[Rfam]
Nucleotides: 263
Base pairs, nucleotide, nucleotide: 001263002262003261004260005259006258007257008056009055010054011029012028013027014026016024017023018022033053034052035051036050037049063255065253067251070247071246072245073244074243075242077240078239079238080237081236082235083234084233085232086231090226093224094223095222096221097220098219101217102216104213105212112208113207114206115205116204117203118202119201120197121196122195123194124193125192126188127187129186130185131184132183133182135178136177137176138175139174145170146169147168148167153162154161155160
Number, partner (000 for none) and nucleotide at each position: 001263c002262c003261g004260u005259g006258c007257a008056g009055c010054u011029g012028g013027g014026g015000a016024g017023u018022u019000a020000g021000c022018g023017g024016u025000g026014c027013c028012c029011u030000g031000u032000a033053c034052c035051u036050g037049c038000a039000a040000u041000c042000c043000g044000c045000u046000a047000u048000a049037g050036c051035a052034g053033g054010g055009g056008u057000g058000a059000u060000g061000u062000c063255c064000g065253g066000u067251u068000u069000c070247g071246g072245g073244u074243u075242g076000g077240u078239u079238u080237u081236u082235c083234u084233a085232a086231u087000g088000c089000a090226g091000c092000c093224c094223u095222c096221u097220a098219u099000a100000a101217g102216u103000g104213g105212c106000g107000u108000u109000g110000a111000c112208g113207u114206u115205u116204g117203g118202g119201u120197c121196u122195u123194a124193c125192g126188c127187a128000a129186u130185g131184g132183g133182a134000a135178u136177u137176c138175a139174u140000g141000a142000a143000c144000c145170g146169u147168g148167u149000c150000a151000g152000g153162u154161c155160a156000g157000g158000a159000a160155u161154g162153a163000a164000g165000c166000a167148g168147c169146a170145c171000u172000a173000a174139g175138u176137g177136a178135a179000a180000c181000c182133u183132c184131c185130c186129a187127u188126g189000u190000g191000c192125c193124g194123u195122g196121a197120g198000g199000a200000a201119g202118c203117c204116u205115g206114g207113g208112c209000u210000g211000a212105g213104c214000a215000a216102a217101c218000u219098g220097u221096a222095g223094a224093g225000g226090u227000a228000a229000c230000g231086g232085u233084u234083a235082g236081g237080a238079a239078a240077a241000u242075u243074g244073a245072u246071u247070c248000a249000a250000c251067g252000c253065c254000g255063g256000a257007u258006g259005c260004a261003c262002g263001g
The family of this 263-nucleotide RNA from Acetivibrio ethanolgignens is "Bacterial large signal recognition particle RNA". By type it is a non-coding RNA gene. The signal recognition particle (SRP) is a universally conserved ribonucleoprotein involved in the co-translational targeting of proteins to membranes. Lineage of the source: Bacteria > Bacillota > Clostridia > Acetivibrionales > Acetivibrio.